[Rfam]
RNA sequence: AAGCCAGCGCCUGGCCCGUGAGGGAUCCCUCGCGGGUGACGAGGGAGGCGGUUCCCCGCGUGGGCGGGGCUAACCCGGCGCCAGCCGGGGAAAAUCGAGGGUUCGGCGGAUGCCGCCGGGGGCCUGGCCGCGGCCCCCACUUCCCCCCCAUGGAAGCCGGCCGACAAAACCAUCGGGCAACCGAUGGGACAAAACGGCCGGCGGCGGCCUCA
Numbered sequence: 001a002a003g004c005c006a007g008c009g010c011c012u013g014g015c016c017c018g019u020g021a022g023g024g025a026u027c028c029c030u031c032g033c034g035g036g037u038g039a040c041g042a043g044g045g046a047g048g049c050g051g052u053u054c055c056c057c058g059c060g061u062g063g064g065c066g067g068g069g070c071u072a073a074c075c076c077g078g079c080g081c082c083a084g085c086c087g088g089g090g091a092a093a094a095u096c097g098a099g100g101g102u103u104c105g106g107c108g109g110a111u112g113c114c115g116c117c118g119g120g121g122g123c124c125u126g127g128c129c130g131c132g133g134c135c136c137c138c139a140c141u142u143c144c145c146c147c148c149c150a151u152g153g154a155a156g157c158c159g160g161c162c163g164a165c166a167a168a169a170c171c172a173u174c175g176g177g178c179a180a181c182c183g184a185u186g187g188g189a190c191a192a193a194a195c196g197g198c199c200g201g202c203g204g205c206g207g208c209c210u211c212a
Stems, first nucleotide, its partner, number of pairs: 014037008023028001047117005056106003118149005156202007170187007